[Rfam]
RNA: eL15-Euryarchaeota ribosomal protein leader
RNA sequence: CCUGCUACGGCAGGACGGAAUGUGGCCGGCGGGGGCGAAAGCCCCCGGAGAGGCGGCACGACCGCCGACCGGCUGAACCACGCA
Number, nucleotide and partner (000 for none) at each position: 001c014002c013003u012004g011005c010006u000007a000008c000009g000010g005011c004012a003013g002014g001015a000016c000017g079018g078019a000020a000021u000022g000023u000024g074025g073026c072027c071028g070029g000030c000031g000032g000033g000034g000035g000036c000037g000038a000039a000040a000041g000042c000043c000044c000045c000046c000047g000048g000049a000050g000051a000052g000053g000054c000055g000056g000057c000058a000059c000060g000061a000062c000063c000064g000065c000066c000067g000068a000069c000070c028071g027072g026073c025074u024075g000076a000077a000078c018079c017080a000081c000082g000083c000084a000